[Rfam]
RNA sequence: AAAUUGGUCCAAGUUCUUCGGAACUCGGACUCAUUCCUCCGGUUGUCCUGAAAUACGGACCAUCAGAGAUGAAAGCGUGGUUUUUAUGGAUGUCUUUUGUCCACGCGGAACGCCCUCCAGCCCCUUCAGGGUGCUUUUGGAGCGGACACAAAAACUAGUCCUUGUC
Numbered sequence: 001a002a003a004u005u006g007g008u009c010c011a012a013g014u015u016c017u018u019c020g021g022a023a024c025u026c027g028g029a030c031u032c033a034u035u036c037c038u039c040c041g042g043u044u045g046u047c048c049u050g051a052a053a054u055a056c057g058g059a060c061c062a063u064c065a066g067a068g069a070u071g072a073a074a075g076c077g078u079g080g081u082u083u084u085u086a087u088g089g090a091u092g093u094c095u096u097u098u099g100u101c102c103a104c105g106c107g108g109a110a111c112g113c114c115c116u117c118c119a120g121c122c123c124c125u126u127c128a129g130g131g132u133g134c135u136u137u138u139g140g141a142g143c144g145g146a147c148a149c150a151a152a153a154a155c156u157a158g159u160c161c162u163u164g165u166c
Stems, first nucleotide, its partner, number of pairs: 006031003010027001012025005035072002037068003041064001045060003089160003092155002095153006113145002115142004119135003123131003

Rfam assigns this 166-nucleotide part of an RNA from Emericellopsis atlantica to the family "Ascomycota telomerase RNA". The family has 4 seed sequences and 475 matches in Rfam 15.1. Gene Ontology terms of the family: telomere maintenance via telomerase, telomerase activity and telomerase catalytic core complex. The family is grouped with related families in Rfam's "Telomerase clan". On this family, see Qi et al., Nucleic Acids Res 2013: "The common ancestral core of vertebrate and fungal telomerase RNAs".